[Rfam]
RNA sequence: ACGAGAUCCUUGGCCCCUCCUCCUCCCUGGGCCUUGGGACAGGCGGUAGCCCCCUCCUCCUCCCUGGGGCGUGCCGCAACCAUAGCAACCGCCCCUCCUCCUCCCUGGGCGGUUGUUCACA
Numbered sequence: 001a002c003g004a005g006a007u008c009c010u011u012g013g014c015c016c017c018u019c020c021u022c023c024u025c026c027c028u029g030g031g032c033c034u035u036g037g038g039a040c041a042g043g044c045g046g047u048a049g050c051c052c053c054c055u056c057c058u059c060c061u062c063c064c065u066g067g068g069g070c071g072u073g074c075c076g077c078a079a080c081c082a083u084a085g086c087a088a089c090c091g092c093c094c095c096u097c098c099u100c101c102u103c104c105c106u107g108g109g110c111g112g113u114u115g116u117u118c119a120c121a
Base pairs, nucleotide, nucleotide: 007038008037009036013033015031016030044076045075046074047073048072049070050069051068052067053066085116086115087114088113089112090111091110092109093108094107

Background
Alphaproteobacterial ar14: a 121-nucleotide RNA from Gemmobacter fulvus. Rfam describes the family as follows. Smr14C2 was renamed NfeR1 (Nodule Formation Efficiency RNA) highly expressed in salt stress and during the symbiotic interaction on legume roots. Pairs were carried over by alignment from the consensus structure. Gene Ontology term of the family: biological process involved in symbiotic interaction. The match comes from Rfam's covariance-model search (61 bits). It is annotated as a small RNA. Taxonomically the source falls in Gemmobacter (Bacteria, Alphaproteobacteria, Rhodobacterales, Paracoccaceae).